[Rfam]
RNA sequence: GCCGAUCUCCGUCGCGGGAGAUUGUGACCCGAGUGGGGGCCAGCAGUUCGGCUCGAAUGUCCUGAGAGGUUCAGACGCCUGGCACCGUGCGGCGAGGGCUCGCCCACUGUAAGUGAGGAGUUCGUGCACGUCCCCGGGAGUAGUCCGGGGGGCGGGCAACGAUGAAAGCGAGAUGGAACGCGACAGGCCGGCCACGGAGCAACGAACAGUUUCCGCUCUCCACGGUACAUGGAUCGUGAGCCCGAGGCGGUGACUCCAGAAGGAGCGCGUGGGCCCCCCAGUGCAGACGAGCCGAGCC
Number, nucleotide and partner (000 for none) at each position: 001g040002c039003c038004g023005a022006u021007c020008u019009c018010c017011g000012u000013c000014g000015c000016g000017g010018g009019a008020g007021a006022u005023u004024g000025u000026g000027a000028c037029c036030c035031g000032a000033g000034u000035g030036g029037g028038g003039g002040c001041c000042a000043g000044c000045a000046g297047u296048u295049c294050g293051g292052c291053u290054c289055g288056a000057a000058u285059g284060u000061c000062c281063u280064g278065a000066g276067a000068g274069g000070u000071u272072c271073a270074g000075a000076c267077g266078c265079c000080u263081g257082g256083c000084a000085c000086c252087g251088u250089g000090c249091g000092g248093c247094g000095a000096g243097g242098g241099c240100u239101c238102g237103c236104c232105c231106a000107c000108u229109g228110u227111a226112a000113g223114u222115g221116a000117g219118g218119a217120g216121u215122u000123c161124g160125u158126g157127c156128a000129c154130g153131u152132c151133c150134c149135c148136g000137g146138g145139a144140g000141u000142a000143g000144u139145c138146c137147g000148g135149g134150g133151g132152g131153c130154g129155g000156g127157c126158a125159a000160c124161g123162a000163u167164g000165a000166a000167a163168g000169c000170g213171a212172g211173a210174u209175g000176g000177a000178a000179c000180g000181c204182g203183a000184c000185a000186g000187g000188c197189c196190g195191g000192c000193c000194a000195c190196g189197g188198a000199g000200c000201a000202a000203c182204g181205a000206a000207c000208a000209g174210u173211u172212u171213c170214c000215g121216c120217u119218c118219u117220c000221c115222a114223c113224g000225g000226u111227a110228c109229a108230u000231g105232g104233a000234u000235c000236g103237u102238g101239a100240g099241c098242c097243c096244g000245a000246g000247g093248c092249g090250g088251u087252g086253a000254c000255u000256c082257c081258a000259g000260a000261a000262g000263g080264a000265g078266c077267g076268c000269g000270u073271g072272g071273g000274c068275c000276c066277c000278c064279c000280a063281g062282u000283g000284c059285a058286g000287a000288c055289g054290a053291g052292c051293c050294g049295a048296g047297c046298c000
RNA: Plant signal recognition particle RNA